[Rfam]
RNA sequence: AAGGAGCAAUAACCCCUCUUGACAAAACAAGAAAGAGUUUAUUGCUCCUUAUAU
Numbered sequence: 001a002a003g004g005a006g007c008a009a010u011a012a013c014c015c016c017u018c019u020u021g022a023c024a025a026a027a028c029a030a031g032a033a034a035g036a037g038u039u040u041a042u043u044g045c046u047c048c049u050u051a052u053a054u
Base pairs, nucleotide, nucleotide: 001050002049003048004047005046006045007044008043009042010041011040012038013037017032018031019030020029021028
RNA: Plastid-psbA-3 3UTR RNA